[Rfam]
The family of this 74-nucleotide RNA sequence from Ornithorhynchus anatinus is "mir-1421 microRNA precursor family". The match comes from Rfam's covariance-model search (50 bits). NCBI's taxonomy places the organism under Eukaryota, Deuterostomia, Chordata, Dipnotetrapodomorpha, Ornithorhynchus. The family's consensus secondary structure was predicted with RNAalifold. Rfam links the family to the GO terms miRNA-mediated post-transcriptional gene silencing and RISC complex.

RNA sequence: CGGUGUGUGAAUGUCCCACGUCAUGCCCUGUGAUGGUAGAAUAUACGGCAUAGCGUUUGGCCUUCCCGUACGGC
Dot-bracket structure: ..(((((.(((.(((..((((.(((((...................))))).))))..))).))).)))))...
Numbered sequence: 001c002g003g004u005g006u007g008u009g010a011a012u013g014u015c016c017c018a019c020g021u022c023a024u025g026c027c028c029u030g031u032g033a034u035g036g037u038a039g040a041a042u043a044u045a046c047g048g049c050a051u052a053g054c055g056u057u058u059g060g061c062c063u064u065c066c067c068g069u070a071c072g073g074c
Stems, first nucleotide, its partner, number of pairs: 003071005009065003013061003018056004023051005